[Rfam]
Group II catalytic intron D1-D4-4: a 140-nucleotide RNA sequence from Anaeromicropila herbilytica.
RNA sequence: UAGCCGGUGUAAGUCCGGUCACGGUAAUCGCCAGUGAGCCGUGUAGCCAAACUCGGUGCGUUGCAGUAAUGCAGGGUGCUAAGCGAGUGGGUAAAGUAACUUCGUAAGAAGUGCGAGCAAUCAUGCAGACCGCAACAUUA
Numbered sequence: 001u002a003g004c005c006g007g008u009g010u011a012a013g014u015c016c017g018g019u020c021a022c023g024g025u026a027a028u029c030g031c032c033a034g035u036g037a038g039c040c041g042u043g044u045a046g047c048c049a050a051a052c053u054c055g056g057u058g059c060g061u062u063g064c065a066g067u068a069a070u071g072c073a074g075g076g077u078g079c080u081a082a083g084c085g086a087g088u089g090g091g092u093a094a095a096g097u098a099a100c101u102u103c104g105u106a107a108g109a110a111g112u113g114c115g116a117g118c119a120a121u122c123a124u125g126c127a128g129a130c131c132g133c134a135a136c137a138u139u140a
Base pairs, nucleotide, nucleotide: 020043021042022041023040024039051088052087053086054085055080056079057078058077059076064071065070096114097113099112100111101110102109117133118132
Source information:
Rfam's curators write: Group II introns are found in rRNA, tRNA and mRNA of organelles in fungi, plants and protists, and also in mRNA in bacteria. On this family, see Bonen and Vogel, Trends Genet 2001: "The ins and outs of group II introns". Pairs were carried over by alignment from the consensus structure. The source organism's lineage runs through Bacteria, Bacillati, Clostridia, Lachnospiraceae and Anaeromicropila. Rfam links the family to the GO term Group II intron splicing.